A member of the RNA family "Glycine riboswitch aptamer" from Treponema berlinense, 96 nucleotides long.

RNA sequence: AGCCAUCUCUCUGGAGAGUCCUUGUAAUGUGGCAAGGCGCCGAAGGGUUAAGGUUAUAAGAACCGAUAUCUCAGGCAAACGGACGGAGCUUAAAAA
Number, nucleotide and partner (000 for none) at each position: 001a000002g000003c000004c000005a000006u000007c000008u000009c088010u087011c086012u085013g084014g000015a000016g000017a000018g000019u000020c037021c036022u035023u034024g000025u000026a000027a000028u000029g000030u000031g000032g000033c000034a023035a022036g021037g020038c000039g076040c075041c074042g072043a071044a000045g000046g070047g069048u068049u000050a000051a000052g064053g063054u000055u000056a000057u000058a000059a000060g000061a000062a000063c053064c052065g000066a000067u000068a048069u047070c046071u043072c042073a000074g041075g040076c039077a000078a000079a000080c000081g000082g000083a000084c013085g012086g011087a010088g009089c000090u000091u000092a000093a000094a000095a000096a000

The base pairs follow the family's consensus structure.
A search with the family's covariance model found it, with a score of 52 bits.
The organism belongs to Treponema, within Bacteria.